This 312-nucleotide RNA from Halomicrobium zhouii belongs to the Rfam family "Archaeal signal recognition particle RNA". Rfam classes the family as a non-coding RNA gene. Rfam links the family to the GO terms SRP-dependent cotranslational protein targeting to membrane, signal sequence recognition and signal recognition particle, plasma membrane targeting. NCBI's taxonomy places the organism under Archaea, Methanobacteriati, Methanobacteriota, Halobacteriales, Halomicrobium. Clan: SRP clan. For this family Rfam cites "Kinship in the SRP RNA family" (Rosenblad et al., RNA Biol, 2009). The family's consensus secondary structure is taken from published work.
RNA sequence: AGGUGGACUAGGUCGGGGGGUUAGGCCCCCCUCCCUCGCCCGCACUAUGGUCUUGAGCGGGGACCGAACCCGGGGGCGUCCGGUCUGCCGGGCGUGGACCCUGUGAGCCAACAGAGAAGCCUCGUCCGCCGGGGCCGACGGUCCGCGGGAGUACGCCUGCAGGGGCGUCCUGCCGCGGUUUACCGAGGGCAGUUCGUCAGGCGCGGAAGCGAGCAGCGAACCCUCGGACACUCGGCGCUCGUCGGAUCGCGGGGUGGAGGAGGCGAACGGGACUACCCACGUCCGAACGCCGGGCAAUCCCGGCGUCCGCCA
Number, nucleotide and partner (000 for none) at each position: 001a000002g311003g310004u309005g308006g307007a306008c305009u000010a000011g065012g064013u063014c062015g034016g033017g031018g030019g029020g028021u000022u000023a000024g000025g000026c000027c000028c020029c019030c018031c017032u000033c016034c015035c000036u000037c000038g000039c061040c060041c059042g058043c057044a000045c055046u000047a000048u000049g000050g000051u000052c000053u000054u000055g045056a000057g043058c042059g041060g040061g039062g014063a013064c012065c011066g000067a000068a000069c000070c303071c302072g301073g300074g299075g298076g000077c000078g295079u294080c293081c292082g290083g000084u000085c000086u000087g000088c000089c285090g284091g283092g282093c281094g280095u279096g278097g277098a000099c000100c271101c270102u269103g268104u267105g000106a000107g264108c263109c262110a000111a000112c259113a000114g000115a000116g000117a000118a000119g255120c254121c253122u252123c251124g250125u249126c245127c244128g243129c000130c241131g240132g239133g238134g236135c235136c234137g233138a232139c000140g229141g180142u000143c178144c177145g176146c175147g174148g173149g000150a171151g170152u000153a168154c167155g166156c165157c164158u163159g000160c000161a000162g000163g158164g157165g156166c155167g154168u153169c000170c151171u150172g000173c148174c147175g146176c145177g144178g143179u000180u141181u000182a000183c227184c226185g225186a224187g223188g222189g221190c000191a000192g000193u220194u219195c218196g217197u216198c000199a000200g000201g000202c211203g210204c209205g000206g000207a000208a000209g204210c203211g202212a000213g000214c000215a000216g197217c196218g195219a194220a193221c189222c188223c187224u186225c185226g184227g183228a000229c140230a000231c000232u138233c137234g136235g135236c134237g000238c133239u132240c131241g130242u000243c128244g127245g126246a000247u000248c000249g125250c124251g123252g122253g121254g120255u119256g000257g000258a000259g112260g000261a000262g109263g108264c107265g000266a000267a104268c103269g102270g101271g100272a000273c000274u000275a000276c000277c097278c096279a095280c094281g093282u092283c091284c090285g089286a000287a000288c000289g000290c082291c000292g081293g080294g079295c078296a000297a000298u075299c074300c073301c072302g071303g070304c000305g008306u007307c006308c005309g004310c003311c002312a000